[Rfam]
Shown here is a 101-nucleotide RNA sequence from Jatropha curcas, a member of the family "Small nucleolar RNA snoR99". Rfam 15.1 lists 733 matches to the family in 222 species. NCBI's taxonomy places the organism under Eukaryota, Tracheophyta, Magnoliopsida, eudicotyledons, Jatropha. Gene Ontology terms of the family: RNA processing and nucleolus. It scores 43 bits against the family's covariance model. By type it is an H/ACA-box small nucleolar RNA.
RNA sequence: AUGCGCUAGAGGUCAUACCAGUUCCCAACAUUAAUUUCCAUUCUUUAACUUUGUCAGCUGGGAUUAUUUAUUUUCAGUUGAUUUUCAUGGCUGGUACAUUA
Number, nucleotide and partner (000 for none) at each position: 001a000002u000003g000004c000005g000006c000007u000008a000009g000010a000011g000012g000013u000014c000015a000016u000017a000018c000019c000020a000021g000022u000023u000024c000025c000026c000027a000028a000029c000030a000031u000032u000033a000034a000035u000036u000037u000038c094039c093040a092041u000042u090043c000044u000045u000046u000047a000048a000049c000050u000051u000052u000053g082054u081055c080056a079057g078058c077059u076060g075061g000062g000063a000064u000065u000066a000067u000068u000069u000070a000071u000072u000073u000074u000075c060076a059077g058078u057079u056080g055081a054082u053083u000084u000085u000086c000087a000088u000089g000090g042091c000092u040093g039094g038095u000096a000097c000098a000099u000100u000101a000